[Rfam]
RNA: Fluoride riboswitch aptamer (crcB RNA motif)
Organism: Pedobacter changchengzhani
RNA sequence: UUGUAAACAGGAAAUGGUGUCUUCCUUAAAACCGCGAUAGCUGAUGGCGCCUACAAUAUU
Numbered sequence: 001u002u003g004u005a006a007a008c009a010g011g012a013a014a015u016g017g018u019g020u021c022u023u024c025c026u027u028a029a030a031a032c033c034g035c036g037a038u039a040g041c042u043g044a045u046g047g048c049g050c051c052u053a054c055a056a057u058a059u060u
Stems, first nucleotide, its partner, number of pairs: 010025004016051006034041002